Shown here is a 352-nucleotide RNA sequence from Maritimibacter sp. 55A14, a member of the family "Alphaproteobacteria transfer-messenger RNA".
Rfam links the family to the GO term RNA catabolic process.
The family's RNA type in Rfam is non-coding RNA gene.
Rfam's curators write: Bacterial tmRNA, also known as 10Sa RNA or SsrA, is named for its dual tRNA and mRNA-like properties.
The match comes from Rfam's covariance-model search (299 bits).
Lineage of the source: Bacteria > Pseudomonadati > Pseudomonadota > Rhodobacterales > Maritimibacter.
The family's consensus secondary structure is taken from published work.
[Rfam]
RNA sequence: CCCCUUGAUCCGAAGCGCCGGACAGCUUACAUCUGUUGCGUUCCCGUUCGGGGACUAUGGCGAUAAACGCGCACGUAAUAAGCGGAUCGGACCCGGGGGCGGUACCCGGCGGCUCCACCAAUUCUCCCUCGUUGGGGGCAUCAGGGGCCGAAACAGGAUCGACGAACGUCUAAAGGUGUCAGCUUUCGCCCGGUGAGGUACCACCGUUAUCGGUCCGCAAAGUACAGUUGCCAACGACAACCGUGCUCCGGUGGCCGUUGCUGCGUAAGCAGUAACAACACCGAAACUUAAGCCCUGGCGUCUAGCAACGUCAGGCGGGGUUCGCAGGCACCUGGCAACAGAAGCCUGCACU
Numbered sequence: 001c002c003c004c005u006u007g008a009u010c011c012g013a014a015g016c017g018c019c020g021g022a023c024a025g026c027u028u029a030c031a032u033c034u035g036u037u038g039c040g041u042u043c044c045c046g047u048u049c050g051g052g053g054a055c056u057a058u059g060g061c062g063a064u065a066a067a068c069g070c071g072c073a074c075g076u077a078a079u080a081a082g083c084g085g086a087u088c089g090g091a092c093c094c095g096g097g098g099g100c101g102g103u104a105c106c107c108g109g110c111g112g113c114u115c116c117a118c119c120a121a122u123u124c125u126c127c128c129u130c131g132u133u134g135g136g137g138g139c140a141u142c143a144g145g146g147g148c149c150g151a152a153a154c155a156g157g158a159u160c161g162a163c164g165a166a167c168g169u170c171u172a173a174a175g176g177u178g179u180c181a182g183c184u185u186u187c188g189c190c191c192g193g194u195g196a197g198g199u200a201c202c203a204c205c206g207u208u209a210u211c212g213g214u215c216c217g218c219a220a221a222g223u224a225c226a227g228u229u230g231c232c233a234a235c236g237a238c239a240a241c242c243g244u245g246c247u248c249c250g251g252u253g254g255c256c257g258u259u260g261c262u263g264c265g266u267a268a269g270c271a272g273u274a275a276c277a278a279c280a281c282c283g284a285a286a287c288u289u290a291a292g293c294c295c296u297g298g299c300g301u302c303u304a305g306c307a308a309c310g311u312c313a314g315g316c317g318g319g320g321u322u323c324g325c326a327g328g329c330a331c332c333u334g335g336c337a338a339c340a341g342a343a344g345c346c347u348g349c350a351c352u
Stems, first nucleotide, its partner, number of pairs: 040055005059190005069183002071179004083168002087165003093109005110150007191206004197216002200214003318333004324349006